[Rfam]
RNA sequence: UGCAUUUGGCUUUCAUCAGUGACUUUGGUGUGAAUAGACUACUAAGGCACGCGGUGAAUGCCAAUUGCA
Numbered sequence: 001u002g003c004a005u006u007u008g009g010c011u012u013u014c015a016u017c018a019g020u021g022a023c024u025u026u027g028g029u030g031u032g033a034a035u036a037g038a039c040u041a042c043u044a045a046g047g048c049a050c051g052c053g054g055u056g057a058a059u060g061c062c063a064a065u066u067g068c069a
Stems, first nucleotide, its partner, number of pairs: 003067002006064001009061002012058005019052003023047008
RNA: mir-124 microRNA precursor family
Organism: Panagrolaimus superbus